[Rfam]
RNA sequence: CCAGUACAAAGGCAACCUAUUUUGAAAAGAAUUGGACGCAAAGUAAUCAGAUCUAAGGAAGUAAUCAGGUGGAAACUUCUAGGAUGGCUGUACUACCUGG
Numbered sequence: 001c002c003a004g005u006a007c008a009a010a011g012g013c014a015a016c017c018u019a020u021u022u023u024g025a026a027a028a029g030a031a032u033u034g035g036a037c038g039c040a041a042a043g044u045a046a047u048c049a050g051a052u053c054u055a056a057g058g059a060a061g062u063a064a065u066c067a068g069g070u071g072g073a074a075a076c077u078u079c080u081a082g083g084a085u086g087g088c089u090g091u092a093c094u095a096c097c098u099g100g
Base pairs, nucleotide, nucleotide: 012039013038017034019032020031021030023028042094043093044092045091048090049089050088051085052084053083058079059078060077061076
Source information:
Shown here is a 100-nucleotide sequence from Guptibacillus hwajinpoensis, a member of the family "c-di-GMP-I riboswitch aptamer". Its family is annotated with cyclic-di-GMP binding in the Gene Ontology. NCBI's taxonomy places the organism under Bacteria, Bacillota, Bacilli, Caryophanales, Guptibacillus. GEMM was predicted in a large-scale screen for bacterial structured RNA regulatory elements.